The family of this 109-nucleotide RNA sequence from Mesorhizobium australicum is "Alphaproteobacterial ar14". Smr14C2 was renamed NfeR1 (Nodule Formation Efficiency RNA) highly expressed in salt stress and during the symbiotic interaction on legume roots. Gene Ontology term of the family: biological process involved in symbiotic interaction. It scores 62 bits against the family's covariance model. For this family Rfam cites "A conserved alpha-proteobacterial small RNA contributes to osmoadaptation and symbiotic efficiency of rhizobia on legume roots" (Robledo et al., Environ Microbiol, 2017). Rfam classes the family as a small RNA.
[Rfam]
RNA sequence: GCAAUCCCGCGAGCGGUUCUCCUCCUCCCAACCGCUCCGGGUCGGUGGCCGGCUUCUCCUCCCGCCGGCGAUCAUGGAAAGGACCGGGUCCUCCCCCCGGUCUUUUUCU
Numbered sequence: 001g002c003a004a005u006c007c008c009g010c011g012a013g014c015g016g017u018u019c020u021c022c023u024c025c026u027c028c029c030a031a032c033c034g035c036u037c038c039g040g041g042u043c044g045g046u047g048g049c050c051g052g053c054u055u056c057u058c059c060u061c062c063c064g065c066c067g068g069c070g071a072u073c074a075u076g077g078a079a080a081g082g083a084c085c086g087g088g089u090c091c092u093c094c095c096c097c098c099g100g101u102c103u104u105u106u107u108c109u
Stems, first nucleotide, its partner, number of pairs: 007040003011037007044073003048069005080104009